RNA sequence: CGCUGGCUGAGACAUCACAGACUCAUCGACUUGGGGGAUUUUUGUGAGUCUGAGAGGUAAGCGCCGCGGCCUGUCCUUCCGGACCUGCCCUUCGCCUUGUCUGCUGCUCCUGCUGACCCCGGGCCUUGUACCCUCAGAUCAGUCUCCUCGGUGCGCUCCGGUGCUGCGGCCUGUGGUUGGAUUGUCCGUGACGUCCCGACUCACUGCUGACCCACUGGCCUACGGCGCCGGCAGGAUGAAGCUGUCCCUGGUGGCUGCGGUGCUGCUG
Numbered sequence: 001c002g003c004u005g006g007c008u009g010a011g012a013c014a015u016c017a018c019a020g021a022c023u024c025a026u027c028g029a030c031u032u033g034g035g036g037g038a039u040u041u042u043u044g045u046g047a048g049u050c051u052g053a054g055a056g057g058u059a060a061g062c063g064c065c066g067c068g069g070c071c072u073g074u075c076c077u078u079c080c081g082g083a084c085c086u087g088c089c090c091u092u093c094g095c096c097u098u099g100u101c102u103g104c105u106g107c108u109c110c111u112g113c114u115g116a117c118c119c120c121g122g123g124c125c126u127u128g129u130a131c132c133c134u135c136a137g138a139u140c141a142g143u144c145u146c147c148u149c150g151g152u153g154c155g156c157u158c159c160g161g162u163g164c165u166g167c168g169g170c171c172u173g174u175g176g177u178u179g180g181a182u183u184g185u186c187c188g189u190g191a192c193g194u195c196c197c198g199a200c201u202c203a204c205u206g207c208u209g210a211c212c213c214a215c216u217g218g219c220c221u222a223c224g225g226c227g228c229c230g231g232c233a234g235g236a237u238g239a240a241g242c243u244g245u246c247c248c249u250g251g252u253g254g255c256u257g258c259g260g261u262g263c264u265g266c267u268g
Stems, first nucleotide, its partner, number of pairs: 004257006016163003020159001032122001034120004061109001063107002066104004167179005

Rfam assigns this 268-nucleotide sequence from Canis lupus to the family "bip internal ribosome entry site (IRES)". Lineage of the source: Eukaryota > Gnathostomata > Tetrapoda > Laurasiatheria > Canis lupus. From the family's description: This family represents the bip internal ribosome entry site (IRES).